[Rfam]
RNA sequence: AACUCCUGUUUCUGCCCCAUUUUUCGUUCGCUACCGUGAAAUAUUGGGUUCUGGUGAUGGAGAAGAACAAGCCUUGUGAUAGUCUUUCUGCAACUUUGAUACACCCGUGGUUAGGCUAUUGCAUGGAUCGUGUGGAUGCGUUAUUUGACUCGCUGUGCUCUUUUACCCCCUUGAGCAGUGGGAUUUAAUGCUUCGCUACAGUU
Numbered sequence: 001a002a003c004u005c006c007u008g009u010u011u012c013u014g015c016c017c018c019a020u021u022u023u024u025c026g027u028u029c030g031c032u033a034c035c036g037u038g039a040a041a042u043a044u045u046g047g048g049u050u051c052u053g054g055u056g057a058u059g060g061a062g063a064a065g066a067a068c069a070a071g072c073c074u075u076g077u078g079a080u081a082g083u084c085u086u087u088c089u090g091c092a093a094c095u096u097u098g099a100u101a102c103a104c105c106c107g108u109g110g111u112u113a114g115g116c117u118a119u120u121g122c123a124u125g126g127a128u129c130g131u132g133u134g135g136a137u138g139c140g141u142u143a144u145u146u147g148a149c150u151c152g153c154u155g156u157g158c159u160c161u162u163u164u165a166c167c168c169c170c171u172u173g174a175g176c177a178g179u180g181g182g183a184u185u186u187a188a189u190g191c192u193u194c195g196c197u198a199c200a201g202u203u
Stems, first nucleotide, its partner, number of pairs: 003062004016048004020043001022041004072126002075123011088110004132196004138191005149182005158175003